[Rfam]
RNA sequence: AAUCGAUAAAGGCAAACUUGUUGAAAGACAAGGACGCAAAGCCUCGGGUCUAAAGCGAUUUACCGCUAUGAUGGCCGGGUUGCCGGG
Numbered sequence: 001a002a003u004c005g006a007u008a009a010a011g012g013c014a015a016a017c018u019u020g021u022u023g024a025a026a027g028a029c030a031a032g033g034a035c036g037c038a039a040a041g042c043c044u045c046g047g048g049u050c051u052a053a054a055g056c057g058a059u060u061u062a063c064c065g066c067u068a069u070g071a072u073g074g075c076c077g078g079g080u081u082g083c084c085g086g087g
Base pairs, nucleotide, nucleotide: 012037013036017032018031019030020029021028022027040081041080042079043078045077046076047075048072049071050070055066056065057064